Rfam assigns this 73-nucleotide sequence from Fidelibacterota bacterium MT.SAG.4 to the family "tRNA".
Rfam links the family to the GO term triplet codon-amino acid adaptor activity.

RNA sequence: GCCACCCUAGCUCAGUUGGUAGAGCAGCCGCCUCGUAAGCGGCAGGUCGUCGGUUCGACUCCGAUGGGUGGCU
Number, nucleotide and partner (000 for none) at each position: 001g072002c071003c070004a069005c068006c067007c066008u000009a000010g025011c024012u023013c022014a000015g000016u000017u000018g000019g000020u000021a000022g013023a012024g011025c010026a000027g043028c042029c041030g040031c039032c000033u000034c000035g000036u000037a000038a000039g031040c030041g029042g028043c027044a000045g000046g000047u000048c000049g065050u064051c063052g062053g061054u000055u000056c000057g000058a000059c000060u000061c053062c052063g051064a050065u049066g007067g006068g005069u004070g003071g002072c001073u000
The family's RNA type in Rfam is transfer RNA. Transfer RNA (tRNA) molecules are approximately 80 nucleotides in length.